[Rfam]
Overview
This 145-nucleotide sequence from Hordeum vulgare belongs to the Rfam family "Small nucleolar RNA snoR136".
RNA sequence: UCUGCUUUUCUUGACAGUACUUGCCUGUAAACUAAUCUUUAUGGUUCUUGGGCAAUGAGAAGAUGGUAAGCAGAAAGCAGAUAUUCCUCUCGCUAUCCAGCGCAGAAUUUCUUGUUAUGUGAUUGGACGUUGAGGAACUAAAUUG
Numbered sequence: 001u002c003u004g005c006u007u008u009u010c011u012u013g014a015c016a017g018u019a020c021u022u023g024c025c026u027g028u029a030a031a032c033u034a035a036u037c038u039u040u041a042u043g044g045u046u047c048u049u050g051g052g053c054a055a056u057g058a059g060a061a062g063a064u065g066g067u068a069a070g071c072a073g074a075a076a077g078c079a080g081a082u083a084u085u086c087c088u089c090u091c092g093c094u095a096u097c098c099a100g101c102g103c104a105g106a107a108u109u110u111c112u113u114g115u116u117a118u119g120u121g122a123u124u125g126g127a128c129g130u131u132g133a134g135g136a137a138c139u140a141a142a143u144u145g
Base pairs, nucleotide, nucleotide: 002066003065004064006062009060010059012057013056021055022054023053024052025051026050027049031045032044033043084137085136086135087134088133089132091129092128096127097126098125099124100123106116107115
NCBI's taxonomy places the organism under Eukaryota, Embryophyta, Magnoliopsida, Poaceae, Hordeum vulgare. It scores 50 bits against the family's covariance model. On this family, see Chen and Wu, Nucleic Acids Res 2009: "Mining small RNA sequencing data: a new approach to identify small nucleolar RNAs in Arabidopsis".